[Rfam]
RNA sequence: GAAAUAAAAUCAUAACUCCCCUUAAUUAAGGAGCCAGACAGCAUGGGUAGCACCACAAUGGGCGUGAAACUC
Number, nucleotide and partner (000 for none) at each position: 001g018002a017003a000004a000005u014006a013007a000008a000009a000010u000011c000012a000013u006014a005015a000016c000017u002018c001019c000020c000021c000022u000023u000024a000025a000026u000027u000028a000029a000030g054031g053032a000033g000034c000035c050036a000037g000038a000039c046040a000041g000042c000043a000044u000045g000046g039047g000048u000049a000050g035051c000052a000053c031054c030055a000056c000057a000058a000059u000060g072061g071062g070063c000064g000065u000066g000067a000068a000069a000070c062071u061072c060
The record is a 72-nucleotide sequence from Yersinia enterocolitica, which matches "PutA 5' UTR thermometer" in Rfam. Rfam links the family to the GO terms regulation of translation and response to temperature stimulus. Lineage of the source: Bacteria > Pseudomonadati > Pseudomonadota > Enterobacterales > Yersinia enterocolitica subsp. palearctica. By type it is an RNA thermoregulator. It is one of the family's seed sequences. Rfam describes the family as follows. Position upstream of pepN gene responsible for amino acid processing.